RNA sequence: GGAACCCAGUCUGGUAAGUGUUAGCCACACGCCAGUAUCUAGCCUUGGAGCCGAAGCCGUGAGGUCAGGUUUAAGAGUAGGAAAGAAACCAUAUGAGCCGUAAUGCGAAAGCGUAAAGUGAUUGAGCCUCGUUAGAUUAGAUAGAAUGGAAGCUGAUGCCGUCACCUCGGCAGCAAGCAAUAAUGCUUAUUCGAAAUGGCAAGAAUAAGUAGGUUCCAUCUGGGUCAGAGAACA
Numbered sequence: 001g002g003a004a005c006c007c008a009g010u011c012u013g014g015u016a017a018g019u020g021u022u023a024g025c026c027a028c029a030c031g032c033c034a035g036u037a038u039c040u041a042g043c044c045u046u047g048g049a050g051c052c053g054a055a056g057c058c059g060u061g062a063g064g065u066c067a068g069g070u071u072u073a074a075g076a077g078u079a080g081g082a083a084a085g086a087a088a089c090c091a092u093a094u095g096a097g098c099c100g101u102a103a104u105g106c107g108a109a110a111g112c113g114u115a116a117a118g119u120g121a122u123u124g125a126g127c128c129u130c131g132u133u134a135g136a137u138u139a140g141a142u143a144g145a146a147u148g149g150a151a152g153c154u155g156a157u158g159c160c161g162u163c164a165c166c167u168c169g170g171c172a173g174c175a176a177g178c179a180a181u182a183a184u185g186c187u188u189a190u191u192c193g194a195a196a197u198g199g200c201a202a203g204a205a206u207a208a209g210u211a212g213g214u215u216c217c218a219u220c221u222g223g224g225u226c227a228g229a230g231a232a233c234a
Base pairs, nucleotide, nucleotide: 011035012034013033014032018030019029020028021027022202024200025199038086039085040084043081044080045079046077048072049071050070051069052068055065057064058063123228124226126225127224128223129222131220146219147218148217149216150215151214152178153177154176157172158171159170160169184211185210186209187208188207189206190205191204192203
RNA: Group II catalytic intron D1-D4-6